[Rfam]
RNA sequence: GAAAGGCUGCGUAAAAUUUUAUUUUGCGGCUGGAUGCAUAGAGACCCGUCAUUUUUAUGUAUCCCAAUUAGG
Numbered sequence: 001g002a003a004a005g006g007c008u009g010c011g012u013a014a015a016a017u018u019u020u021a022u023u024u025u026g027c028g029g030c031u032g033g034a035u036g037c038a039u040a041g042a043g044a045c046c047c048g049u050c051a052u053u054u055u056u057a058u059g060u061a062u063c064c065c066a067a068u069u070a071g072g
Base pairs, nucleotide, nucleotide: 005031006030007029008028009027010026011025032064033063034062035061036060037059038058039057040056041055042054043053044052
The family of this 72-nucleotide sequence from Blautia producta is "S4-Clostridia ribosomal protein leader". The family is grouped with related families in Rfam's "Ribosomal Protein S4 Leader clan". For this family Rfam cites "Discovery of 20 novel ribosomal leader candidates in bacteria and archaea" (Eckert and Weinberg, BMC Microbiol, 2020).